RNA sequence: CUACUGCACAUAUGUCAAAUUCCCACUAGUAUUUUCAGUUGCUCUUGCAGCGACGCGUGACUAAUGGAGCCGUAAUUGUGCAGAAAUCGAACCCUCAGCUGGACACGACGCUGGGAGGCACCGCCUCCCAGCUCGGCAGCACACCGGUCUCCUCGGUGUGCGGCGGUCGUGUCCAACUGACAGCC
Numbered sequence: 001c002u003a004c005u006g007c008a009c010a011u012a013u014g015u016c017a018a019a020u021u022c023c024c025a026c027u028a029g030u031a032u033u034u035u036c037a038g039u040u041g042c043u044c045u046u047g048c049a050g051c052g053a054c055g056c057g058u059g060a061c062u063a064a065u066g067g068a069g070c071c072g073u074a075a076u077u078g079u080g081c082a083g084a085a086a087u088c089g090a091a092c093c094c095u096c097a098g099c100u101g102g103a104c105a106c107g108a109c110g111c112u113g114g115g116a117g118g119c120a121c122c123g124c125c126u127c128c129c130a131g132c133u134c135g136g137c138a139g140c141a142c143a144c145c146g147g148u149c150u151c152c153u154c155g156g157u158g159u160g161c162g163g164c165g166g167u168c169g170u171g172u173c174c175a176a177c178u179g180a181c182a183g184c185c
Stems, first nucleotide, its partner, number of pairs: 004083007023067003029061002096179003100175001108170003114128005139161002142158003
The record is a 185-nucleotide RNA from Tetrapisispora phaffii, which matches "Small nucleolar RNA snR85" in Rfam.
Taxonomically the source falls in Tetrapisispora phaffii (Eukaryota, Fungi, Saccharomycotina, Saccharomycetes).
The literature on the family includes a 2004 paper in Nucleic Acids Res by Schattner et al., "Genome-wide searching for pseudouridylation guide snoRNAs: analysis of the Saccharomyces cerevisiae genome".